[Rfam]
RNA: Bacteroidales small SRP
RNA sequence: GAGAAAUGGGCAAGUCUCUUACGGUCAGCUCCCUUUUAAUCCCCCAGGACGGGAACGUAGCAAGGGCAGAAGGUUGUAGCGACGCGAUAAGAAUCGCUUGCCCACCU
Numbered sequence: 001g002a003g004a005a006a007u008g009g010g011c012a013a014g015u016c017u018c019u020u021a022c023g024g025u026c027a028g029c030u031c032c033c034u035u036u037u038a039a040u041c042c043c044c045c046a047g048g049a050c051g052g053g054a055a056c057g058u059a060g061c062a063a064g065g066g067c068a069g070a071a072g073g074u075u076g077u078a079g080c081g082a083c084g085c086g087a088u089a090a091g092a093a094u095c096g097c098u099u100g101c102c103c104a105c106c107u
Stems, first nucleotide, its partner, number of pairs: 008103008017092005022086002024083002